[Rfam]
RNA sequence: GCCGGUCCUCGGUAGUGGUCCCCGGGAGAACGAGUCCCCCGGUGGCUUCGAUCGAAGACCGGC
Numbered sequence: 001g002c003c004g005g006u007c008c009u010c011g012g013u014a015g016u017g018g019u020c021c022c023c024g025g026g027a028g029a030a031c032g033a034g035u036c037c038c039c040c041g042g043u044g045g046c047u048u049c050g051a052u053c054g055a056a057g058a059c060c061g062g063c
Stems, first nucleotide, its partner, number of pairs: 001063007009055005017047004022042005028036002
The record is a 63-nucleotide sequence from Actinacidiphila oryziradicis, which matches "Actino-pnp RNA" in Rfam. The family's consensus secondary structure is taken from published work.